The record is an 89-nucleotide sequence, which matches "GA-cis RNA" in Rfam. Rfam's curators put it in the seed alignment.
RNA sequence: AGUAGGAGGAAACAAAAUGAACGGAGUUCAUUUUCUAUAAAUGUUUCCGACGAAAUGCCGCUGACCGAAGGGAGGGGGCGCUACAUCUG
Number, nucleotide and partner (000 for none) at each position: 001a000002g000003u000004a000005g000006g000007a000008g048009g047010a046011a045012a044013c043014a000015a000016a032017a031018u030019g029020a028021a027022c000023g000024g000025a000026g000027u021028u020029c019030a018031u017032u016033u000034u000035c000036u000037a000038u000039a000040a000041a000042u000043g013044u012045u011046u010047c009048c008049g000050a000051c000052g000053a000054a000055a000056u000057g079058c078059c077060g000061c075062u074063g000064a000065c071066c070067g000068a000069a000070g066071g065072g000073a000074g062075g061076g000077g059078g058079c057080g000081c000082u000083a000084c000085a000086u000087c000088u000089g000